[Rfam]
RNA sequence: GGUCAUGAGUGCCAGCGACAAGCCCGGGCUUGCUGGCCGGCAACCCUCCUACCGCGGUGGGGUGCCCCCGGUGAGGACCUGGUCGUGCGCGCGGGGCGUGCGGCAAGCGCGGGCC
Numbered sequence: 001g002g003u004c005a006u007g008a009g010u011g012c013c014a015g016c017g018a019c020a021a022g023c024c025c026g027g028g029c030u031u032g033c034u035g036g037c038c039g040g041c042a043a044c045c046c047u048c049c050u051a052c053c054g055c056g057g058u059g060g061g062g063u064g065c066c067c068c069c070g071g072u073g074a075g076g077a078c079c080u081g082g083u084c085g086u087g088c089g090c091g092c093g094g095g096g097c098g099u100g101c102g103g104c105a106a107g108c109g110c111g112g113g114c115c
Stems, first nucleotide, its partner, number of pairs: 001079004009038001011037006021030002039066003044062003048057002082104009